[Rfam]
RNA sequence: UCUCUCUCAGGCACAUACCCUGUGCCAAAGCAUAUGAGAAAUUCGGAGUAAUCUUCACCACAAACAAACCCCACCCCGCCGUGCUCUCUGCACGCUGGGGCACCCGGGUUCUGCCUGUGAGGGCCUGGCGCGACCUUCGCGUCUGCAAUUGGCAUCAGAAAAGCAGGGGGAGGGGAGCUGGCUUUUCCUCUGGAAGAGUCUGACCCCCUUUCACCCUUUGGGAGAGUCGUUGCGAAGAUUGUGUGUCGAAACACUUGAGUGCAAUACGCGGCGUGCCUCGGCAUUCUCUCCUUCGGGGGUGAAGGCUGAGGUAUAAUUCAAUUCCGAUCAUUCUGGUGGGGA
Numbered sequence: 001u002c003u004c005u006c007u008c009a010g011g012c013a014c015a016u017a018c019c020c021u022g023u024g025c026c027a028a029a030g031c032a033u034a035u036g037a038g039a040a041a042u043u044c045g046g047a048g049u050a051a052u053c054u055u056c057a058c059c060a061c062a063a064a065c066a067a068a069c070c071c072c073a074c075c076c077c078g079c080c081g082u083g084c085u086c087u088c089u090g091c092a093c094g095c096u097g098g099g100g101c102a103c104c105c106g107g108g109u110u111c112u113g114c115c116u117g118u119g120a121g122g123g124c125c126u127g128g129c130g131c132g133a134c135c136u137u138c139g140c141g142u143c144u145g146c147a148a149u150u151g152g153c154a155u156c157a158g159a160a161a162a163g164c165a166g167g168g169g170g171a172g173g174g175g176a177g178c179u180g181g182c183u184u185u186u187c188c189u190c191u192g193g194a195a196g197a198g199u200c201u202g203a204c205c206c207c208c209u210u211u212c213a214c215c216c217u218u219u220g221g222g223a224g225a226g227u228c229g230u231u232g233c234g235a236a237g238a239u240u241g242u243g244u245g246u247c248g249a250a251a252c253a254c255u256u257g258a259g260u261g262c263a264a265u266a267c268g269c270g271g272c273g274u275g276c277c278u279c280g281g282c283a284u285u286c287u288c289u290c291c292u293u294c295g296g297g298g299g300u301g302a303a304g305g306c307u308g309a310g311g312u313a314u315a316a317u318u319c320a321a322u323u324c325c326g327a328u329c330a331u332u333c334u335g336g337u338g339g340g341g342a
Stems, first nucleotide, its partner, number of pairs: 003271002006268001010026006044326005053237004113124004127143005145233004151228003167217003273314010